[Rfam]
RNA sequence: CUACCAAAAGUUCAUUUUGAGGGUAAGGUUUUUAAUAACCUUUACCAACCAGGGCUCUUUGGGAGACUAAAAGACCACACUCCACAGUGAACUAUACCACUAAGUAUAGUUCAUUACUACUUUGUGGUUACAUC
Numbered sequence: 001c002u003a004c005c006a007a008a009a010g011u012u013c014a015u016u017u018u019g020a021g022g023g024u025a026a027g028g029u030u031u032u033u034a035a036u037a038a039c040c041u042u043u044a045c046c047a048a049c050c051a052g053g054g055c056u057c058u059u060u061g062g063g064a065g066a067c068u069a070a071a072a073g074a075c076c077a078c079a080c081u082c083c084a085c086a087g088u089g090a091a092c093u094a095u096a097c098c099a100c101u102a103a104g105u106a107u108a109g110u111u112c113a114u115u116a117c118u119a120c121u122u123u124g125u126g127g128u129u130a131c132a133u134c
Base pairs, nucleotide, nucleotide: 004062005061006060007059008058015054016053017052021050022049023046026043027040028039029038030037072129075127076126077125078124079123086115087114088113089112090111091110092109093108094107095106096105097104
A member of the RNA family "Small nucleolar RNA SNORA4" from Heterocephalus glaber, 134 nucleotides long.
Pairs were carried over by alignment from the consensus structure, which was predicted with PFOLD.
The match comes from Rfam's covariance-model search (111 bits).
Its family is annotated with RNA processing and nucleolus in the Gene Ontology.
From the family's description: ACA4 is a member of the H/ACA class of snoRNA that guide the sites of modification of uridines to pseudouridines.
Lineage of the source: Eukaryota > Chordata > Sarcopterygii > Bathyergidae > Heterocephalus.